[Rfam]
RNA sequence: GCAUGAGUUGGAUUGAUGUCAGGCUUGUCCCCUGGACCUCUCAUAGUGUCCAAUGCAGAGCAGACUGUGGCUCUGAACCGUUGCCUGGCCUCUGCCUGUGGGCUACUGGCACUGAAGGGGUUUUCACAGAG
Numbered sequence: 001g002c003a004u005g006a007g008u009u010g011g012a013u014u015g016a017u018g019u020c021a022g023g024c025u026u027g028u029c030c031c032c033u034g035g036a037c038c039u040c041u042c043a044u045a046g047u048g049u050c051c052a053a054u055g056c057a058g059a060g061c062a063g064a065c066u067g068u069g070g071c072u073c074u075g076a077a078c079c080g081u082u083g084c085c086u087g088g089c090c091u092c093u094g095c096c097u098g099u100g101g102g103c104u105a106c107u108g109g110c111a112c113u114g115a116a117g118g119g120g121u122u123u124u125c126a127c128a129g130a131g
Stems, first nucleotide, its partner, number of pairs: 001056004005051001007049002014046001016044003021039003024035002069123002072120002079114002084109002086105006
This 131-nucleotide RNA sequence from Dipodomys ordii belongs to the Rfam family "Small nucleolar RNA SNORA42/SNORA80 family". Rfam's curators write: The members of this family belong to the H/ACA class of snoRNAs that guide the sites of modification of uridines to pseudouridines. A reference for the family is Schattner et al. (2006), "A computational screen for mammalian pseudouridylation guide H/ACA RNAs", RNA. By type it is an H/ACA-box small nucleolar RNA. NCBI's taxonomy places the organism under Eukaryota, Opisthokonta, Gnathostomata, Rodentia, Dipodomys. Pairs were carried over by alignment from the consensus structure, which was predicted with RNAalifold.